[Rfam]
RNA: RAGATH-5 RNA
Organism: Faecalibacterium prausnitzii
RNA sequence: CCGGAUACCUCAGCAGGGCCGCACCGUAAAGAGACCCCGCCCCAGCCCGCA
Numbered sequence: 001c002c003g004g005a006u007a008c009c010u011c012a013g014c015a016g017g018g019c020c021g022c023a024c025c026g027u028a029a030a031g032a033g034a035c036c037c038c039g040c041c042c043c044a045g046c047c048c049g050c051a
Base pairs, nucleotide, nucleotide: 002026003025004024013040016037017036018035020033022031